[Rfam]
RNA sequence: GGUCAUGAGUGUCAGCGCGUAGCCCCGGCUUGCUGACCGGCAACCCUUCAUCGCGAUGGGGUGCCCCGGGUGAGGACCUGGCCGACGCCGCCCGGUGUUCGGCAAGCGCGAGCA
Numbered sequence: 001g002g003u004c005a006u007g008a009g010u011g012u013c014a015g016c017g018c019g020u021a022g023c024c025c026c027g028g029c030u031u032g033c034u035g036a037c038c039g040g041c042a043a044c045c046c047u048u049c050a051u052c053g054c055g056a057u058g059g060g061g062u063g064c065c066c067c068g069g070g071u072g073a074g075g076a077c078c079u080g081g082c083c084g085a086c087g088c089c090g091c092c093c094g095g096u097g098u099u100c101g102g103c104a105a106g107c108g109c110g111a112g113c114a
Stems, first nucleotide, its partner, number of pairs: 001078004009038001011037006021030002039065003044061003048056002081103004085098005
Dot-bracket structure: ((((....(.((((((....((......)).)))))))(((..(((.((.....))..))).))).........))))..(((((((((....))))).))))...........
The record is a 114-nucleotide RNA from Asanoa hainanensis, which matches "SAM (S-adenosyl methionine) riboswitch aptamer" in Rfam. About the family: SAM-IV is a mRNA element that regulates gene expression via direct sensing of S-adenosylmethionine (SAM or AdoMet). SAM-IV riboswitches share conserved nucleotide positions with the previously described SAM-I riboswitches sequence analysis and molecular recognition experiments suggest that SAM-I and SAM-IV riboswitches share similar ligand binding sites, but have different scaffolds. The base pairs follow the family's consensus structure, which is taken from published work. The match comes from Rfam's covariance-model search (111 bits).